Shown here is a 155-nucleotide RNA from Rhodopseudomonas palustris, a member of the family "Bradyrhizobiaceae sRNA BjrC80". Lineage of the source: Bacteria > Pseudomonadota > Nitrobacteraceae > Rhodopseudomonas > Rhodopseudomonas palustris. The sequence is in the family's curated seed alignment. The family's RNA type in Rfam is small RNA. A reference for the family is Madhugiri et al. (2012), "Small RNAs of the Bradyrhizobium/Rhodopseudomonas lineage and their analysis", RNA Biol.
[Rfam]
RNA sequence: GAGUGUCGCCGGCAAUCGUCGCCCCCAGCCGACGGCGCUAUCCCGGGGACGGGUCGUAACCCGCUCGUCCCCGCCUUUACACCUUCCGGAAGGAGUUCAGCCCCCCUCCGUCGGAAGGUCUAGGCGGGCGGUGGAGUCCCCCAGCUCCAUCGCCC
Numbered sequence: 001g002a003g004u005g006u007c008g009c010c011g012g013c014a015a016u017c018g019u020c021g022c023c024c025c026c027a028g029c030c031g032a033c034g035g036c037g038c039u040a041u042c043c044c045g046g047g048g049a050c051g052g053g054u055c056g057u058a059a060c061c062c063g064c065u066c067g068u069c070c071c072c073g074c075c076u077u078u079a080c081a082c083c084u085u086c087c088g089g090a091a092g093g094a095g096u097u098c099a100g101c102c103c104c105c106c107u108c109c110g111u112c113g114g115a116a117g118g119u120c121u122a123g124g125c126g127g128g129c130g131g132u133g134g135a136g137u138c139c140c141c142c143a144g145c146u147c148c149a150u151c152g153c154c155c
Stems, first nucleotide, its partner, number of pairs: 002039007010031004045072009055063002073125002078122002082118002086114004092109004126155012